[Rfam]
RNA sequence: GAGUGUAAUUACUGUAAGUGGCUCUGGAUAAGAGCAUCUACUAAAUGACUUAAA
Numbered sequence: 001g002a003g004u005g006u007a008a009u010u011a012c013u014g015u016a017a018g019u020g021g022c023u024c025u026g027g028a029u030a031a032g033a034g035c036a037u038c039u040a041c042u043a044a045a046u047g048a049c050u051u052a053a054a
Base pairs, nucleotide, nucleotide: 013043014041015040016039021035022034023033024032025031
RNA: UnaL2 LINE 3' element